[Rfam]
RNA sequence: AUAAUGAUACUCCCGUCCAGUCACAGUCCGAGCGUGAUAAAACCGUCGCAGGCAAUGAGGGCGGCUCUGUCAGACCGACAGUUGGGGUGGAACUCCCGUGG
Numbered sequence: 001a002u003a004a005u006g007a008u009a010c011u012c013c014c015g016u017c018c019a020g021u022c023a024c025a026g027u028c029c030g031a032g033c034g035u036g037a038u039a040a041a042a043c044c045g046u047c048g049c050a051g052g053c054a055a056u057g058a059g060g061g062c063g064g065c066u067c068u069g070u071c072a073g074a075c076c077g078a079c080a081g082u083u084g085g086g087g088u089g090g091a092a093c094u095c096c097c098g099u100g101g
Stems, first nucleotide, its partner, number of pairs: 012098001013064006065084001067081001069079003085097003